[Rfam]
RNA sequence: AGGGUUCCGGUUCACGUCAGAUAUUCAGCACGUUUGGCGACCCGGCGGCC
Numbered sequence: 001a002g003g004g005u006u007c008c009g010g011u012u013c014a015c016g017u018c019a020g021a022u023a024u025u026c027a028g029c030a031c032g033u034u035u036g037g038c039g040a041c042c043c044g045g046c047g048g049c050c
Stems, first nucleotide, its partner, number of pairs: 003050003007045004015039008
Dot-bracket structure: ..(((.((((....((((((((.........))))))))..))))..)))
L31-Actinobacteria ribosomal protein leader: a 50-nucleotide RNA sequence. The base pairs follow the family's consensus structure, which is taken from published work. It is annotated as a cis-regulatory leader.